[Rfam]
RNA: Small nucleolar RNA SNORD14
Organism: Papaver somniferum
RNA sequence: UGUUUGUGAUGAUAAAUUUAAGGCUUGUUUCUCAAGAACAUUCGCAGUUCCCGACUAAGAGCUUUCGCCAGGCUUGAGAGCUAAUGCUGCUUUAUUGCUUUCUUGAAUGUCUGAAACA
Dot-bracket structure: ((((........................................................((((((.........)))))).................................))))
Numbered sequence: 001u002g003u004u005u006g007u008g009a010u011g012a013u014a015a016a017u018u019u020a021a022g023g024c025u026u027g028u029u030u031c032u033c034a035a036g037a038a039c040a041u042u043c044g045c046a047g048u049u050c051c052c053g054a055c056u057a058a059g060a061g062c063u064u065u066c067g068c069c070a071g072g073c074u075u076g077a078g079a080g081c082u083a084a085u086g087c088u089g090c091u092u093u094a095u096u097g098c099u100u101u102c103u104u105g106a107a108u109g110u111c112u113g114a115a116a117c118a
Stems, first nucleotide, its partner, number of pairs: 001118004061081006